[Rfam]
RNA sequence: GGUCAUGAGUGCCAGCGACAAGCCCCGGCUCGCUGGACGGCAACCCUCCACCGCGGUGGGGUGCCCCGGGAGACGACCUGGCCACCGCCCGACCGGGUGAGUGGCAAGCGCGGGUC
Numbered sequence: 001g002g003u004c005a006u007g008a009g010u011g012c013c014a015g016c017g018a019c020a021a022g023c024c025c026c027g028g029c030u031c032g033c034u035g036g037a038c039g040g041c042a043a044c045c046c047u048c049c050a051c052c053g054c055g056g057u058g059g060g061g062u063g064c065c066c067c068g069g070g071a072g073a074c075g076a077c078c079u080g081g082c083c084a085c086c087g088c089c090c091g092a093c094c095g096g097g098u099g100a101g102u103g104g105c106a107a108g109c110g111c112g113g114g115u116c
Base pairs, nucleotide, nucleotide: 001078002077003076004075009038012036013035014034015033016032021030022029039065040064041063044061045060046059048056049055081105082104083103084102085101086099087098088097089096090095
The record is a 116-nucleotide sequence from Dietzia sp. ANT_WB102, which matches "SAM (S-adenosyl methionine) riboswitch aptamer" in Rfam. Rfam's curators write: SAM-IV is a mRNA element that regulates gene expression via direct sensing of S-adenosylmethionine (SAM or AdoMet). Gene Ontology terms of the family: regulation of gene expression and S-adenosylmethionine metabolic process. The match comes from Rfam's covariance-model search (105 bits).